[Rfam]
RNA sequence: UGUCCGUUUGCGGGAGAGAGCAGCGCCGCUGCCGCCGAAGGGGAAUCGCCCGAAAUCUCUCAGGCAAAAGAACCGUGAACGGGAU
Numbered sequence: 001u002g003u004c005c006g007u008u009u010g011c012g013g014g015a016g017a018g019a020g021c022a023g024c025g026c027c028g029c030u031g032c033c034g035c036c037g038a039a040g041g042g043g044a045a046u047c048g049c050c051c052g053a054a055a056u057c058u059c060u061c062a063g064g065c066a067a068a069a070g071a072a073c074c075g076u077g078a079a080c081g082g083g084a085u
Base pairs, nucleotide, nucleotide: 006080007079008078009077010076011075012074013073020032021031022030023029034065035064036063037061038060041059042058043057047052

Shown here is an 85-nucleotide RNA from Starkeya sp. ORNL1, a member of the family "Glycine riboswitch aptamer".
From the family's description: This family represents the bacterial glycine riboswitch.
Pairs were carried over by alignment from the consensus structure.